[Rfam]
RNA sequence: CUUGGGAAAUGAUGAUACAAACAUAUUAUUUAAGCUAGCAGCGGUGUUGAAUGUAUAUUAUUUGCACGUCAGUCUGAUCCCAAC
Numbered sequence: 001c002u003u004g005g006g007a008a009a010u011g012a013u014g015a016u017a018c019a020a021a022c023a024u025a026u027u028a029u030u031u032a033a034g035c036u037a038g039c040a041g042c043g044g045u046g047u048u049g050a051a052u053g054u055a056u057a058u059u060a061u062u063u064g065c066a067c068g069u070c071a072g073u074c075u076g077a078u079c080c081c082a083a084c
Base pairs, nucleotide, nucleotide: 002083003082004081005080006079007078
RNA: Small nucleolar RNA Z122
Organism: Citrus unshiu